This 141-nucleotide sequence from Sorex araneus belongs to the Rfam family "Small Cajal body specific RNA 11". The source organism's lineage runs through Eukaryota, Gnathostomata, Amniota, Soricinae and Sorex. Rfam links the family to the GO terms RNA processing, nucleolus and Cajal body. A reference for the family is Darzacq et al. (2002), "Cajal body-specific small nuclear RNAs: a novel class of 2'-O-methylation and pseudouridylation guide RNAs", EMBO J. From the family's description: scaRNAs are a specific class of small nuclear RNAs which localise to the Cajal bodies and guide the modification of RNA polymerase II transcribed spliceosomal RNAs U1, U2, U4, U5 and U12. ACA57 belongs to the H/ACA box class of guide RNAs as it has the predicted hairpin-hinge-hairpin-tail structure, conserved H/ACA-box motifs and is found associated with GAR1. ACA57 is predicted to guide the pseudouridylation of the U5 spliceosomal RNA at position U43.
RNA sequence: UAGCUUUGUCCCAUGCUUUGCCUGCCCAUUGUGCAUAGCUCCAACAGUGAAGUUUGGUGGAGUACACAACACUCUCUCUCUCUAUGUAUAGGAGAGUUGUUCUGAGCCUAUGGCUGACUCUUAAAGGCAUGAGAGGACAGU
Numbered sequence: 001u002a003g004c005u006u007u008g009u010c011c012c013a014u015g016c017u018u019u020g021c022c023u024g025c026c027c028a029u030u031g032u033g034c035a036u037a038g039c040u041c042c043a044a045c046a047g048u049g050a051a052g053u054u055u056g057g058u059g060g061a062g063u064a065c066a067c068a069a070c071a072c073u074c075u076c077u078c079u080c081u082c083u084a085u086g087u088a089u090a091g092g093a094g095a096g097u098u099g100u101u102c103u104g105a106g107c108c109u110a111u112g113g114c115u116g117a118c119u120c121u122u123a124a125a126g127g128c129a130u131g132a133g134a135g136g137a138c139a140g141u
Stems, first nucleotide, its partner, number of pairs: 003063006010057002024053002027049006077136006086128002089125001092122007099114003103110002
Dot-bracket structure: ..((((((.((............((.((((((...........))))))..))..)))))))).............((((((...((.(..((((((((((.((....)).))).)))))))..).))..)))))).....